[Rfam]
RNA sequence: ACUUAGUAAACUGCGUUAAGGAUAGUAGUGAAAAUCCUUUUUUUGCUGCCAUAUAUGGCAAAAAAAGAUUGCAACGAAUAGCCUGUUAAAAC
Numbered sequence: 001a002c003u004u005a006g007u008a009a010a011c012u013g014c015g016u017u018a019a020g021g022a023u024a025g026u027a028g029u030g031a032a033a034a035u036c037c038u039u040u041u042u043u044u045g046c047u048g049c050c051a052u053a054u055a056u057g058g059c060a061a062a063a064a065a066a067g068a069u070u071g072c073a074a075c076g077a078a079u080a081g082c083c084u085g086u087u088a089a090a091a092c
Base pairs, nucleotide, nucleotide: 019084020083021082023080024079028075029074033070034069035068036067039065040064041063042062043061044060045059046058047057048056
This 92-nucleotide sequence from Siansivirga zeaxanthinifaciens belongs to the Rfam family "Flavo-1 RNA".
NCBI's taxonomy places the organism under Bacteria, Pseudomonadati, Flavobacteriaceae, Siansivirga, Siansivirga zeaxanthinifaciens.
The match comes from Rfam's covariance-model search (62 bits).